[Rfam]
RNA sequence: AAUUUUGUUCGUAGGAGCAAAGAUAAGCAGAUCUAUUCUAUACCAAAUAAGUACAGCCAAUACGCAAUGGGA
Numbered sequence: 001a002a003u004u005u006u007g008u009u010c011g012u013a014g015g016a017g018c019a020a021a022g023a024u025a026a027g028c029a030g031a032u033c034u035a036u037u038c039u040a041u042a043c044c045a046a047a048u049a050a051g052u053a054c055a056g057c058c059a060a061u062a063c064g065c066a067a068u069g070g071g072a
Stems, first nucleotide, its partner, number of pairs: 003022002006019005043071002051063003
Notes: A member of the RNA family "Plastid-clpP 5UTR RNA" from Coptis chinensis, 72 nucleotides long. The literature on the family includes a 2023 paper in Plant Commun by Richter et al., "Retrograde signaling in plants: A critical review focusing on the GUN pathway and beyond". About the family: Plastid clpP is a non-coding RNA (ncRNA) recognised in plastids. Lineage of the source: Eukaryota > Viridiplantae > Euphyllophyta > Magnoliopsida > Coptis. Rfam 15.1 lists 2,105 matches to the family in 526 species.